Shown here is a 158-nucleotide sequence from Mycetocola reblochoni, a member of the family "FMN riboswitch aptamer (RFN element)".
The match comes from Rfam's covariance-model search (74 bits).
Taxonomically the source falls in Mycetocola reblochoni (Bacteria, Bacillati, Actinomycetota, Mycetocola).
Pairs were carried over by alignment from the consensus structure, which is taken from published work.
RNA sequence: CAACGUGCUCCGGGGUCGGUGAGAAUCCGAACCGGCGGUGACAGUCCGCGAACCCCGGCCGACAGGCCGAGGCCGACCCGGUGGAAUUCCGGGACCGACGGUGAUGGGGCGCUCCUUCGCAGGAGCAGCUCCGAGUCCGGAUGGGAGGCAGCACGUCG
Numbered sequence: 001c002a003a004c005g006u007g008c009u010c011c012g013g014g015g016u017c018g019g020u021g022a023g024a025a026u027c028c029g030a031a032c033c034g035g036c037g038g039u040g041a042c043a044g045u046c047c048g049c050g051a052a053c054c055c056c057g058g059c060c061g062a063c064a065g066g067c068c069g070a071g072g073c074c075g076a077c078c079c080g081g082u083g084g085a086a087u088u089c090c091g092g093g094a095c096c097g098a099c100g101g102u103g104a105u106g107g108g109g110c111g112c113u114c115c116u117u118c119g120c121a122g123g124a125g126c127a128g129c130u131c132c133g134a135g136u137c138c139g140g141a142u143g144g145g146a147g148g149c150a151g152c153a154c155g156u157c158g
Stems, first nucleotide, its partner, number of pairs: 003156007010147001017029003033097002035049004044095002053072002077093005099139003
Dot-bracket structure: ..((((((((......(((.......)))...((((((.....[[))))...((................))....(((((.......)))))]])).(((...................................))).......)..)))))))..